The family of this 124-nucleotide sequence from Acholeplasma brassicae is "Ribosomal protein L20 leader". Rfam's curators write: This family is a putative r-protein leader autoregulatory structure found in B. subtilis and other low-GC Gram-positive bacteria. It is located in the 5' untranslated regions of mRNAs encoding initiation factor 3 followed by ribosomal proteins L35 and L20 (infC-rpmI-rplT). A Rho-independent transcription terminator structure that is probably involved in regulation is included at the 3' end. Rfam links the family to the GO term regulation of gene expression. On this family, see Zengel and Lindahl, Prog Nucleic Acid Res Mol Biol 1994: "Diverse mechanisms for regulating ribosomal protein synthesis in Escherichia coli".
RNA sequence: AGUGGAAAGAAGAAGUACCUACUUCUCGCCUGAUCAAUCAUUUGGUAGGCAAAAUGUCACGUUAAUUAAUCAAACAAUUGACGUUAUAAGUGGGUACGAAAUGUACGCACUUUUUCUUUUUAUU
Numbered sequence: 001a002g003u004g005g006a007a008a009g010a011a012g013a014a015g016u017a018c019c020u021a022c023u024u025c026u027c028g029c030c031u032g033a034u035c036a037a038u039c040a041u042u043u044g045g046u047a048g049g050c051a052a053a054a055u056g057u058c059a060c061g062u063u064a065a066u067u068a069a070u071c072a073a074a075c076a077a078u079u080g081a082c083g084u085u086a087u088a089a090g091u092g093g094g095u096a097c098g099a100a101a102u103g104u105a106c107g108c109a110c111u112u113u114u115u116c117u118u119u120u121u122a123u124u
Stems, first nucleotide, its partner, number of pairs: 011026006028050003034045002036042002089111004094106005